[Rfam]
RNA sequence: CUGGCCUCGGUACGGACGGGGAACCGUGUGUAUUGUGAACGGGCUCCUGCGUCGGCCCGAGGCCAG
Numbered sequence: 001c002u003g004g005c006c007u008c009g010g011u012a013c014g015g016a017c018g019g020g021g022a023a024c025c026g027u028g029u030g031u032a033u034u035g036u037g038a039a040c041g042g043g044c045u046c047c048u049g050c051g052u053c054g055g056c057c058c059g060a061g062g063c064c065a066g
Base pairs, nucleotide, nucleotide: 001066002065003064004063005062006061007060008059009058010057013054014053019046020045021044024042025041026040027039
RNA: mir-m22-1 microRNA precursor family